[Rfam]
RNA sequence: GGCGUAAAGAGUGCGUAGGCUGUUAUAUAAGAUAGAUGUGAAAUACUUAAGCUUAACUUAAGAACUGCAUUUAUUACUGUUUAACUAGAGUUUAUUAGAGAGAAGUGGAAUUUUAUGUGUAGCAGUGAAAUGCGUAGAUAUAUAAAGGAAUAUCGAUGGCGAAGGCAGCUUCUUGGAAUAAUACUGACGCUGAGGCACGAAAGCGUGGGGAGCAAACAGGAUUAGAUACCCUGGUAGUCCACGCCCUAAACUAUGUCUACUAGUUAUUAAAUUAAAAAUAAAAUUUAGUAACGUAGCUAACGCAUUAAGUAGACCGCCUGGGGAGUACGAUCGCAAGAUUAAAACUCAAAGGAAU
Number, nucleotide and partner (000 for none) at each position: 001g318002g317003c316004g000005u000006a000007a000008a000009g315010a000011g198012u197013g196014c195015g000016u192017a000018g191019g190020c189021u000022g085023u084024u083025a082026u000027a080028u079029a000030a078031g077032a074033u073034a072035g071036a070037u069038g068039u067040g066041a000042a000043a000044u000045a000046c062047u061048u060049a059050a058051g057052c000053u000054u000055a000056a000057c051058u050059u049060a048061a047062g046063a000064a000065c000066u040067g039068c038069a037070u036071u035072u034073a033074u032075u000076a000077c031078u030079g028080u027081u000082u025083a024084a023085c022086u000087a000088g000089a185090g184091u183092u181093u180094a179095u178096u177097a000098g000099a000100g174101a173102g172103a171104a170105g169106u168107g151108g000109a000110a000111u147112u146113u145114u144115a143116u142117g141118u140119g000120u000121a000122g133123c132124a131125g000126u000127g000128a000129a000130a000131u124132g123133c122134g000135u000136a000137g000138a000139u000140a118141u117142a116143u115144a114145a113146a112147g111148g000149a000150a000151u107152a000153u000154c000155g000156a000157u000158g000159g166160c165161g000162a000163a000164g000165g160166c159167a000168g106169c105170u104171u103172c102173u101174u100175g000176g000177a096178a095179u094180a093181a092182u000183a091184c090185u089186g000187a000188c000189g020190c019191u018192g016193a000194g000195g014196c013197a012198c011199g000200a000201a000202a000203g244204c243205g242206u241207g240208g239209g000210g000211a000212g238213c237214a000215a000216a000217c233218a232219g231220g230221a000222u000223u000224a000225g000226a000227u000228a000229c000230c220231c219232u218233g217234g000235u000236a000237g213238u212239c208240c207241a206242c205243g204244c203245c000246c000247u000248a000249a000250a000251c000252u000253a000254u000255g314256u313257c312258u311259a310260c309261u000262a000263g292264u291265u290266a289267u288268u287269a286270a285271a284272u283273u282274a000275a000276a000277a000278a000279u000280a000281a000282a273283a272284u271285u270286u269287a268288g267289u266290a265291a264292c263293g000294u000295a000296g303297c302298u000299a000300a000301c000302g297303c296304a000305u000306u000307a000308a000309g260310u259311a258312g257313a256314c255315c009316g003317c002318c001319u000320g347321g346322g345323g000324a000325g000326u000327a000328c000329g340330a339331u338332c337333g000334c000335a000336a000337g332338a331339u330340u329341a000342a000343a000344a000345c322346u321347c320348a000349a000350a000351g000352g000353a000354a000355u000
The family of this 355-nucleotide part of an RNA from Candidatus Zinderia insecticola is "Bacterial small subunit ribosomal RNA". A reference for the family is Yusupov et al. (2001), "Crystal structure of the ribosome at 5.5 A resolution", Science. The base pairs follow the family's consensus structure, which is taken from published work.